The record is a 77-nucleotide RNA sequence from Culex quinquefasciatus, which matches "mir-1890 microRNA precursor family" in Rfam. The family has 3 seed sequences and 5 matches in Rfam 15.1. Its family is annotated with miRNA-mediated post-transcriptional gene silencing and RISC complex in the Gene Ontology. Rfam's curators put it in the seed alignment.
[Rfam]
RNA sequence: UACGGCCAGAGCUAAUUGGAGACUUCUUGAAUCGUGUUGUGAACAGUCAUGAAAUCUUUGAUUAGGUCUGGUUGUGG
Dot-bracket structure: ((((((((((.(((((((((((.(((.(((....((((...)))).))).))).))))))))))).)))))))))).